[Rfam]
RNA sequence: UGUUGGCUGGAAUGAUGAUCCAAUUAGAUGUACGAGGGGUCACCUUAUGAGCUACAACCAUUUGAGGCAUAAAUUCUGUCUGACCAGCCAAUC
Dot-bracket structure: .(((((((((.........................................................................))))))))).
A member of the RNA family "Small nucleolar RNA Z266" from Triticum aestivum, 93 nucleotides long. By type it is a C/D-box small nucleolar RNA. It scores 82 bits against the family's covariance model. Taxonomically the source falls in Triticum (Eukaryota, Embryophyta, commelinids, Poaceae).